[Rfam]
RNA: Ribosomal protein L10 leader
RNA sequence: GAAUUGAAUAGCCUUCCACUGUAGACAGCAGGUGCUCUUAGAGCUUAAUAUCCCUGCCGAGGUUGGAAAGAUAGCCUUAAGUUAUAUUGGGCCUUCUUAACCUCUGCAGUCAAAGCGGGGGUUUUUCUAUUAGUGU
Numbered sequence: 001g002a003a004u005u006g007a008a009u010a011g012c013c014u015u016c017c018a019c020u021g022u023a024g025a026c027a028g029c030a031g032g033u034g035c036u037c038u039u040a041g042a043g044c045u046u047a048a049u050a051u052c053c054c055u056g057c058c059g060a061g062g063u064u065g066g067a068a069a070g071a072u073a074g075c076c077u078u079a080a081g082u083u084a085u086a087u088u089g090g091g092c093c094u095u096c097u098u099a100a101c102c103u104c105u106g107c108a109g110u111c112a113a114a115g116c117g118g119g120g121g122u123u124u125u126u127c128u129a130u131u132a133g134u135g136u
Base pairs, nucleotide, nucleotide: 028057029056030055031054032053034044035043036042101121102120103119104118105117106116107115